[Rfam]
RNA sequence: UUACGACACAGUUACUGACGACGGAAGUGGAAUAGACCAUAAGGGAGCUGUGUUUGGGUAAUAGCCGGUCGUCUGGGCCGAGAUA
Numbered sequence: 001u002u003a004c005g006a007c008a009c010a011g012u013u014a015c016u017g018a019c020g021a022c023g024g025a026a027g028u029g030g031a032a033u034a035g036a037c038c039a040u041a042a043g044g045g046a047g048c049u050g051u052g053u054u055u056g057g058g059u060a061a062u063a064g065c066c067g068g069u070c071g072u073c074u075g076g077g078c079c080g081a082g083a084u085a
Stems, first nucleotide, its partner, number of pairs: 005054008015044002017073005027040004062080001064078003